[Rfam]
This 170-nucleotide RNA from Arsenophonus endosymbiont of Aleurodicus floccissimus belongs to the Rfam family "M-box riboswitch aptamer (ykoK leader)". Gene Ontology terms of the family: regulation of gene expression and response to magnesium ion. A reference for the family is Barrick et al. (2004), "New RNA motifs suggest an expanded scope for riboswitches in bacterial genetic control", Proc Natl Acad Sci U S A. Rfam's curators write: M-box riboswitch, also know as ykoK leader is described as a metaloregulatory RNA that sense divalent metals and function as a genetic control element of genes related to divalent metal transport in bacteria. It was first reported upstream of the B.subtilis ykoK gene and genes with related functions in other bacteria. The pairing is the family consensus, mapped onto this sequence. The source organism's lineage runs through Bacteria, Pseudomonadota, Gammaproteobacteria, Morganellaceae and Arsenophonus.
RNA sequence: GUUAUAUCUCGUUAGGCUAGGCUCCUAUACAAACACAAGUUGCUGAUCUCACGACGUCGAGAGACGCCCAAGGUUAGGACAAGGCAGAUCGGAUUAAGGUUUGCCUCAAAGUAACUUCCUAUCAUAGAAUACGUUGUAUAAUGCUAAAACUAAGACGAUUGGGAUAGUGU
Numbered sequence: 001g002u003u004a005u006a007u008c009u010c011g012u013u014a015g016g017c018u019a020g021g022c023u024c025c026u027a028u029a030c031a032a033a034c035a036c037a038a039g040u041u042g043c044u045g046a047u048c049u050c051a052c053g054a055c056g057u058c059g060a061g062a063g064a065c066g067c068c069c070a071a072g073g074u075u076a077g078g079a080c081a082a083g084g085c086a087g088a089u090c091g092g093a094u095u096a097a098g099g100u101u102u103g104c105c106u107c108a109a110a111g112u113a114a115c116u117u118c119c120u121a122u123c124a125u126a127g128a129a130u131a132c133g134u135u136g137u138a139u140a141a142u143g144c145u146a147a148a149a150c151u152a153a154g155a156c157g158a159u160u161g162g163g164a165u166a167g168u169g170u
Stems, first nucleotide, its partner, number of pairs: 005166006011156002013097001015151002020145003026140007039115005045075005055066004082106004088100003117129001119127001